[Rfam]
Nucleotides: 035
Stems, first nucleotide, its partner, number of pairs: 002021004010034003
Number, partner (000 for none) and nucleotide at each position: 001000a002021u003020g004019c005018a006000g007000g008000a009000a010034g011033c012032u013000g014000a015000a016000a017000a018005u019004g020003c021002a022000a023000a024000a025000c026000a027000g028000a029000g030000u031000a032012a033011g034010c035000a
The record is a 35-nucleotide RNA sequence, which matches "DUF805b RNA" in Rfam. It is annotated as a cis-regulatory element.